Shown here is a 147-nucleotide sequence from Zingiber officinale, a member of the family "Small nucleolar RNA F1/F2/snoR5a". Rfam classes the family as an H/ACA-box small nucleolar RNA.
RNA sequence: UAAUGCCACCAGGUAUCUGAUGCUCUGUUAAUUUUAUGGCUGAGCUUCUCGUAAGUGUGGCAGAGAUGGAAGGGAAGAACAGGCCUUGCGACACAGGAUGCUCAUUUUUUGAAGUGUGCUUCCUGUUACUAAAUCCUGUUUACAUCU
Numbered sequence: 001u002a003a004u005g006c007c008a009c010c011a012g013g014u015a016u017c018u019g020a021u022g023c024u025c026u027g028u029u030a031a032u033u034u035u036a037u038g039g040c041u042g043a044g045c046u047u048c049u050c051g052u053a054a055g056u057g058u059g060g061c062a063g064a065g066a067u068g069g070a071a072g073g074g075a076a077g078a079a080c081a082g083g084c085c086u087u088g089c090g091a092c093a094c095a096g097g098a099u100g101c102u103c104a105u106u107u108u109u110u111g112a113a114g115u116g117u118g119c120u121u122c123c124u125g126u127u128a129c130u131a132a133a134u135c136c137u138g139u140u141u142a143c144a145u146c147u
Stems, first nucleotide, its partner, number of pairs: 004062006019048002022045004027040004078140005093126005100119002